[Rfam]
RNA sequence: ACGCGUCUACGUGACUGGCGAGCAAUAGAUGGGUCACCAUCGGGAAGCGUAGACGCUCGAAUGCCGUUCGCCUGGGCAUCUUGA
Numbered sequence: 001a002c003g004c005g006u007c008u009a010c011g012u013g014a015c016u017g018g019c020g021a022g023c024a025a026u027a028g029a030u031g032g033g034u035c036a037c038c039a040u041c042g043g044g045a046a047g048c049g050u051a052g053a054c055g056c057u058c059g060a061a062u063g064c065c066g067u068u069c070g071c072c073u074g075g076g077c078a079u080c081u082u083g084a
Base pairs, nucleotide, nucleotide: 003056004055005054006053007052008051009050010049011048012047015044016043017072018071019070020069021068029040030039031038032037061079062078063077064076065075
A member of the RNA family "ZMP/ZTP riboswitch aptamer (pfl RNA motif)" from Paraburkholderia sp. BL23I1N1, 84 nucleotides long. A search with the family's covariance model found it, with a score of 72 bits. Lineage of the source: Bacteria > Pseudomonadota > Burkholderiales > Burkholderiaceae > Paraburkholderia.